[Rfam]
This 96-nucleotide RNA sequence from Thermanaerothrix daxensis belongs to the Rfam family "c-di-GMP-I riboswitch aptamer".
GEMM was predicted in a large-scale screen for bacterial structured RNA regulatory elements.
The organism belongs to Thermanaerothrix, within Bacteria.
RNA sequence: GUUCGACAAGGGCAAACCCGGCGAAAGCCGGCGACGCAAAGCCAUGGGUCUAAGGGUCUGCAUCCAACGCAGGCCUAUGAUUGCCAGGCUGCCGAA
Dot-bracket structure: ...........((....(((((....)))))....))..((((.((((((....(((((((.......)))))))...)))..)))))))......